[Rfam]
RNA sequence: CCGGUGCCGGUUCACCUCCGGGACACCGCGAGGACCCGGUGCC
Dot-bracket structure: ..(((.((((....(((((((....))).))))..)))).)))
The record is a 43-nucleotide RNA from Actinopolyspora mortivallis, which matches "L31-Actinobacteria ribosomal protein leader" in Rfam.
On this family, see Eckert and Weinberg, BMC Microbiol 2020: "Discovery of 20 novel ribosomal leader candidates in bacteria and archaea".
Lineage of the source: Bacteria > Bacillati > Actinomycetes > Actinopolysporales > Actinopolyspora.
The family's consensus secondary structure is taken from published work.